A member of the RNA family "mir-142 microRNA precursor family" from Cottoperca gobio, 85 nucleotides long.
It scores 70 bits against the family's covariance model.
Gene Ontology terms of the family: RISC complex and miRNA-mediated post-transcriptional gene silencing.
Rfam 15.1 lists 1,555 matches to the family in 631 species.
The base pairs follow the family's consensus structure, which was predicted with RNAalifold.
The literature on the family includes a 2010 paper in BMC Genomics by Linsen et al., "Small RNA expression and strain specificity in the rat".

RNA sequence: CAGUAUACUCAUCCAUAAAGUAGGAAACACUACACUGUGUAAUGAAAUUUAGUAGUGCUUUCUACUUUAUGGGUGACAAUACUGU
Dot-bracket structure: .............((((((((((..(.((((((..................)))))).)..))))))))))..............